[Rfam]
RNA sequence: UUCUGAUCUGUCGGUUCGACUCCCUCCCGUCGGCCCUGAGACACCUUCCCCGGUCCCAGGUCUCACGGAGGGGAAUCAGACCGACAGGCCGGAUCGCA
Numbered sequence: 001u002u003c004u005g006a007u008c009u010g011u012c013g014g015u016u017c018g019a020c021u022c023c024c025u026c027c028c029g030u031c032g033g034c035c036c037u038g039a040g041a042c043a044c045c046u047u048c049c050c051c052g053g054u055c056c057c058a059g060g061u062c063u064c065a066c067g068g069a070g071g072g073g074a075a076u077c078a079g080a081c082c083g084a085c086a087g088g089c090c091g092g093a094u095c096g097c098a
Stems, first nucleotide, its partner, number of pairs: 010085007018077002021074005027068004032063002035060004040055003
Background: A member of the RNA family "mraW RNA", 98 nucleotides long. Rfam's curators put it in the seed alignment. The family's consensus secondary structure is taken from published work.